Rfam assigns this 118-nucleotide sequence from Brachypodium distachyon to the family "MIR5070 microRNA precursor family".
Rfam links the family to the GO terms miRNA-mediated post-transcriptional gene silencing and RISC complex.

RNA sequence: CAGGGUACACUUCGACCCUCCUUAGUUCAACCAAAUGAACUAAAAUUUCAAAAUGGCAUGUAACUUUUCGAAAAUCUAGUUCAUUUGUUUGAACUAAGGAAGGUCGAAGCGUACCCUG
Numbered sequence: 001c002a003g004g005g006u007a008c009a010c011u012u013c014g015a016c017c018c019u020c021c022u023u024a025g026u027u028c029a030a031c032c033a034a035a036u037g038a039a040c041u042a043a044a045a046u047u048u049c050a051a052a053a054u055g056g057c058a059u060g061u062a063a064c065u066u067u068u069c070g071a072a073a074a075u076c077u078a079g080u081u082c083a084u085u086u087g088u089u090u091g092a093a094c095u096a097a098g099g100a101a102g103g104u105c106g107a108a109g110c111g112u113a114c115c116c117u118g
Base pairs, nucleotide, nucleotide: 002117003116004115005114006113007112008111010109011108012107013106014105015104016103017102019100020099021098022097023096024095025094026093027092028091029090030089032087033086034085035084036083037082038081039080040079041078042077